RNA sequence: AAAAAGAAAAGGCAAACUUAUCGAAAGGUAAGGACGCAAAGCCACGGAUCUAAGGGUUUUAACUAUGAUCGCCGGGUUGCCGAA
Numbered sequence: 001a002a003a004a005a006g007a008a009a010a011g012g013c014a015a016a017c018u019u020a021u022c023g024a025a026a027g028g029u030a031a032g033g034a035c036g037c038a039a040a041g042c043c044a045c046g047g048a049u050c051u052a053a054g055g056g057u058u059u060u061a062a063c064u065a066u067g068a069u070c071g072c073c074g075g076g077u078u079g080c081c082g083a084a
Base pairs, nucleotide, nucleotide: 012037013036017032018031019030020029021028022027040078041077042076043075045074046073047072048069049068050067055063057061
c-di-GMP-I riboswitch aptamer: an 84-nucleotide RNA sequence from Paraliobacillus quinghaiensis.
The family's consensus secondary structure is taken from published work.
It scores 84 bits against the family's covariance model.